About this RNA: Shown here is a 353-nucleotide sequence from Novosphingobium colocasiae, a member of the family "Alphaproteobacteria transfer-messenger RNA". It is annotated as a non-coding RNA gene. Rfam's curators write: Bacterial tmRNA, also known as 10Sa RNA or SsrA, is named for its dual tRNA and mRNA-like properties.

RNA sequence: UCCCUUCACAUUCGCGCACAAGCGCUUAUAUGCGGUGGUGCCGGCUUGCCGGAUAUGACGAUAAAUUGCAGCGUGCAAUAGAUGCAGCGGACCCGGGGGCGGUACCCGGCGGCUCCACCACUUCCCUCGCGUGUCUUCGGACAGUGCGGGGCAAAUGACGGGGCCGAACUAGGAUCGACGUGUGUUGAAAAGCGGUGUUUUCGUCCGGGCUGAGUAACCCGUUCAAGGCUCAAAACUCAUAAGUGCCAACGACAACGAAGCACUUGCUCUCGCGGCGUAAUUCUAGGGGCUAACGCCCUGAAGUUACAAAGUCAGAACACGGUUGGACCCACCGGGUAACAGAAGCGGAUUCC
Dot-bracket structure: ........................................((((....))))....(((((......(((.(((........(((.(((...(((((.......)))))(((((((...........................................)))))))............)))))).......))).)))..)))))((((.[[[....))))........]]].......................................................................................((((.[[.[[.))))............]].]]..
The match comes from Rfam's covariance-model search (210 bits). Pairs were carried over by alignment from the consensus structure, which is taken from published work. NCBI's taxonomy places the organism under Bacteria, Pseudomonadati, Sphingomonadales, Sphingomonadaceae, Novosphingobium.